Rfam assigns this 130-nucleotide RNA from Zostera marina to the family "U11 spliceosomal RNA". The family's RNA type in Rfam is spliceosomal small nuclear RNA. The organism belongs to Zostera, within Eukaryota.
RNA sequence: UAAAAGGGUCAGUUGGCUAAAUAUGCCACGCUCGUCCUUUGUUUGAUGGGUGCUGUAUGGAUUUCAAGACAUAUGGCUGACAUAAUUUAUGGAAACUUAAUGGGUUGGCUCGCUUUAGGCCGACCCUCUA
Dot-bracket structure: .......(((((.((((.......))))((((((((........))))))))(((((((..........))))))))))))..................(.(.(((((.(((...).)))))))).)...
It scores 72 bits against the family's covariance model.
The family is grouped with related families in Rfam's "U1 clan".